The family of this 351-nucleotide RNA from Microdochium bolleyi is "Nuclear RNase P". The family's RNA type in Rfam is ribozyme. The match comes from Rfam's covariance-model search (39 bits). About the family: Ribonuclease P (RNase P) is a ubiquitous endoribonuclease, found in archaea, bacteria and eukarya as well as chloroplasts and mitochondria. Its best characterised activity is the generation of mature 5'-ends of tRNAs by cleaving the 5'-leader elements of precursor-tRNAs. Cellular RNase Ps are ribonucleoproteins. RNA from bacterial RNase Ps retains its catalytic activity in the absence of the protein subunit, i.e. it is a ribozyme. On this family, see Frank and Pace, Annu Rev Biochem 1998: "Ribonuclease P: unity and diversity in a tRNA processing ribozyme". Its family is annotated with ribonuclease P activity, ribonuclease P complex and tRNA processing in the Gene Ontology.

[Rfam]
RNA sequence: UCCUCCGGGAACUCUUGGUCACGAGGCGAUCACGGGCCGCCUUCCUUCAGCAUAUGAGAAAUUCGGAGUAAUCUUCAAUACCACACCGCAAGUCGCCCGCCCAGUUGUGGGAUCGACCGGUCUGCCCGUAAGGGUCUGGCGUGACAUCACGCCUGCAAUUGGCAUCAGAAAAGCAGGGGCCUGCCCGGGGAGUCCCUUCGCGGGGUCUCUCUGGAGCAGUGUUUCCCUAUGGGAGAGCCGUUGCGAAGAUUGUGUGCGAACACUUGAGUGCGAUACGCAGCGUGCUGUGCUGUCAUCCCUUCUUGGGGAUGACGGUGCGGCACAAUUCGAUUCUGAUUACUCUGGUGGGGA
Number, nucleotide and partner (000 for none) at each position: 001u351002c350003c349004u348005c000006c000007g000008g000009g343010a000011a000012c000013u280014c000015u000016u277017g276018g000019u000020c000021a000022c000023g000024a042025g041026g040027c039028g038029a000030u000031c000032a000033c000034g000035g000036g000037c000038c028039g027040c026041c025042u024043u000044c000045c000046u000047u000048c000049a000050g000051c000052a000053u000054a000055u000056g000057a000058g000059a000060a000061a000062u000063u000064c335065g334066g333067a332068g331069u000070a000071a000072u000073c248074u247075u246076c245077a000078a000079u000080a000081c000082c000083a000084c000085a000086c000087c000088g000089c000090a000091a000092g000093u000094c000095g000096c000097c000098c000099g000100c000101c000102c000103a000104g000105u000106u000107g000108u000109g000110g000111g000112a000113u000114c000115g000116a000117c000118c000119g000120g000121u000122c000123u000124g135125c134126c133127c132128g000129u000130a000131a000132g127133g126134g125135u124136c000137u000138g153139g152140c151141g150142u149143g000144a000145c000146a000147u000148c000149a142150c141151g140152c139153c138154u000155g244156c243157a242158a241159u000160u000161g239162g238163c237164a000165u000166c000167a000168g000169a000170a000171a000172a000173g000174c000175a000176g000177g228178g227179g226180c000181c000182u000183g000184c000185c000186c000187g000188g000189g000190g000191a000192g000193u000194c000195c000196c000197u000198u000199c000200g000201c000202g000203g000204g000205g000206u000207c000208u000209c000210u000211c000212u000213g000214g000215a000216g000217c000218a000219g000220u000221g000222u000223u000224u000225c000226c179227c178228u177229a000230u000231g000232g000233g000234a000235g000236a000237g163238c162239c161240g000241u158242u157243g156244c155245g076246a075247a074248g073249a000250u000251u000252g000253u000254g000255u000256g000257c000258g000259a000260a000261c000262a000263c000264u000265u000266g000267a000268g000269u000270g000271c000272g000273a000274u000275a000276c017277g016278c000279a000280g013281c000282g323283u322284g321285c320286u319287g318288u317289g316290c315291u314292g313293u312294c311295a310296u309297c308298c307299c306300u000301u000302c000303u000304u000305g000306g299307g298308g297309a296310u295311g294312a293313c292314g291315g290316u289317g288318c287319g286320g285321c284322a283323c282324a000325a000326u000327u000328c000329g000330a000331u068332u067333c066334u065335g064336a000337u000338u000339a000340c000341u000342c000343u009344g000345g000346u000347g000348g004349g003350g002351a001